[Rfam]
RNA sequence: AGCGUGGGUGAUGAAAACGUGACCUUAGGUGAGUCCUUUUUGGGCCGUUUUGGUUCAAAGUUUUGGGCUCACCAAUGUUAGGACUUGUCAUAGUUACACUGACACGCG
Numbered sequence: 001a002g003c004g005u006g007g008g009u010g011a012u013g014a015a016a017a018c019g020u021g022a023c024c025u026u027a028g029g030u031g032a033g034u035c036c037u038u039u040u041u042g043g044g045c046c047g048u049u050u051u052g053g054u055u056c057a058a059a060g061u062u063u064u065g066g067g068c069u070c071a072c073c074a075a076u077g078u079u080a081g082g083a084c085u086u087g088u089c090a091u092a093g094u095u096a097c098a099c100u101g102a103c104a105c106g107c108g
Stems, first nucleotide, its partner, number of pairs: 002107005